[Rfam]
Background:
A member of the RNA family "Glycine riboswitch aptamer" from Actinosynnema mirum, 93 nucleotides long. The organism belongs to Actinosynnema mirum, within Bacteria.

RNA sequence: UCACCCCGCGCGGGAGAGUCCGAGCCCCCAGCUCGGCGCCGAAGGAGCAAAUCCUCCCCGGAACCUCUCAGGCCCCAGGACCGCGCGGGCGAG
Numbered sequence: 001u002c003a004c005c006c007c008g009c010g011c012g013g014g015a016g017a018g019u020c021c022g023a024g025c026c027c028c029c030a031g032c033u034c035g036g037c038g039c040c041g042a043a044g045g046a047g048c049a050a051a052u053c054c055u056c057c058c059c060g061g062a063a064c065c066u067c068u069c070a071g072g073c074c075c076c077a078g079g080a081c082c083g084c085g086c087g088g089g090c091g092a093g
Stems, first nucleotide, its partner, number of pairs: 006088008020036004038073003041069002045067003052060001